The family of this 68-nucleotide RNA from Peromyscus maniculatus is "Small nucleolar RNA SNORD73".

RNA sequence: AAUGGAUGAUGACAAAAUGUUUCGGUCCCAAAUGAAACACCCUGAUUUUACCGUUACGUUCUGACAUU
Numbered sequence: 001a002a003u004g005g006a007u008g009a010u011g012a013c014a015a016a017a018u019g020u021u022u023c024g025g026u027c028c029c030a031a032a033u034g035a036a037a038c039a040c041c042c043u044g045a046u047u048u049u050a051c052c053g054u055u056a057c058g059u060u061c062u063g064a065c066a067u068u
Stems, first nucleotide, its partner, number of pairs: 001068004

It is annotated as a C/D-box small nucleolar RNA. A search with the family's covariance model found it, with a score of 76 bits. Gene Ontology terms of the family: nucleolus and RNA processing.